This 150-nucleotide RNA from Eisenbergiella massiliensis belongs to the Rfam family "FMN riboswitch aptamer (RFN element)". The match comes from Rfam's covariance-model search (105 bits).

RNA sequence: AAAGUUCUUCAGGGUUGGGUGUAAUUCCCUACCGGCGGUGACGCUGCAGUUGUUCCACGACAGGUGCAGACAAGUCCGCGACCCGCGUCAUGCGGCUGAUCCGGUACGAAUCCGGAACCGACAGUAAAGUCUGGAUGAAAGAAGAAAAUC
Numbered sequence: 001a002a003a004g005u006u007c008u009u010c011a012g013g014g015u016u017g018g019g020u021g022u023a024a025u026u027c028c029c030u031a032c033c034g035g036c037g038g039u040g041a042c043g044c045u046g047c048a049g050u051u052g053u054u055c056c057a058c059g060a061c062a063g064g065u066g067c068a069g070a071c072a073a074g075u076c077c078g079c080g081a082c083c084c085g086c087g088u089c090a091u092g093c094g095g096c097u098g099a100u101c102c103g104g105u106a107c108g109a110a111u112c113c114g115g116a117a118c119c120g121a122c123a124g125u126a127a128a129g130u131c132u133g134g135a136u137g138a139a140a141g142a143a144g145a146a147a148a149u150c
Base pairs, nucleotide, nucleotide: 005146006145007144008143009142010141017029018028019027031130032129033120034119035079036078037077038076074118075117083095084094100116101115102114103113104112122133123132124131
The base pairs follow the family's consensus structure, which is taken from published work.